Rfam assigns this 166-nucleotide sequence from Firmicutes bacterium CAG:95 to the family "Clostridiales-1 RNA".

[Rfam]
RNA sequence: GUAAGGUAGACUGCCAAGCAUAAGUACCGAUCAUGCCCGCAUGAGGAGGUACUUAUAUUUGGCAGUCAGGAAACAUGAGAAAGGAGCGAUUUUCAAAGAAAAUCAGCGGAUUUCGAAUGCUUUCAGGAUUGCGGGAGUACGAAGUACGGAGCAAUCCGUACCUUAC
Numbered sequence: 001g002u003a004a005g006g007u008a009g010a011c012u013g014c015c016a017a018g019c020a021u022a023a024g025u026a027c028c029g030a031u032c033a034u035g036c037c038c039g040c041a042u043g044a045g046g047a048g049g050u051a052c053u054u055a056u057a058u059u060u061g062g063c064a065g066u067c068a069g070g071a072a073a074c075a076u077g078a079g080a081a082a083g084g085a086g087c088g089a090u091u092u093u094c095a096a097a098g099a100a101a102a103u104c105a106g107c108g109g110a111u112u113u114c115g116a117a118u119g120c121u122u123u124c125a126g127g128a129u130u131g132c133g134g135g136a137g138u139a140c141g142a143a144g145u146a147c148g149g150a151g152c153a154a155u156c157c158g159u160a161c162c163u164u165a166c
Stems, first nucleotide, its partner, number of pairs: 001166007010066004016060003020056009031044005069124004074119003079114004086107002088104007126157007137147004